Description
This 154-nucleotide sequence from Streptococcus infantis belongs to the Rfam family "M-box riboswitch aptamer (ykoK leader)". The organism belongs to Streptococcus infantis, within Bacteria. For this family Rfam cites "Structure and mechanism of a metal-sensing regulatory RNA" (Dann CE 3rd et al., Cell, 2007). It scores 84 bits against the family's covariance model. M-box riboswitch, also know as ykoK leader is described as a metaloregulatory RNA that sense divalent metals and function as a genetic control element of genes related to divalent metal transport in bacteria. It was first reported upstream of the B.subtilis ykoK gene and genes with related functions in other bacteria.

RNA sequence: CGAAAACGGUAGGUGAGGCUACCAUAGGGAUACGGAUGACUACCGCAAAGCAGUGGAGACACUACUCGUUGGUCAACAGUCCUGGUCGCGAAGGUCAAGACUAAGCUCAUUACAUUGCCCUAUGGAGUUAAAGCUUGAACGAAAACAGAUCAUA
Numbered sequence: 001c002g003a004a005a006a007c008g009g010u011a012g013g014u015g016a017g018g019c020u021a022c023c024a025u026a027g028g029g030a031u032a033c034g035g036a037u038g039a040c041u042a043c044c045g046c047a048a049a050g051c052a053g054u055g056g057a058g059a060c061a062c063u064a065c066u067c068g069u070u071g072g073u074c075a076a077c078a079g080u081c082c083u084g085g086u087c088g089c090g091a092a093g094g095u096c097a098a099g100a101c102u103a104a105g106c107u108c109a110u111u112a113c114a115u116u117g118c119c120c121u122a123u124g125g126a127g128u129u130a131a132a133g134c135u136u137g138a139a140c141g142a143a144a145a146c147a148g149a150u151c152a153u154a
Stems, first nucleotide, its partner, number of pairs: 005150001007148001008140001010092001012135003017129003022125008036110004043071001045069002052063004079101003085095003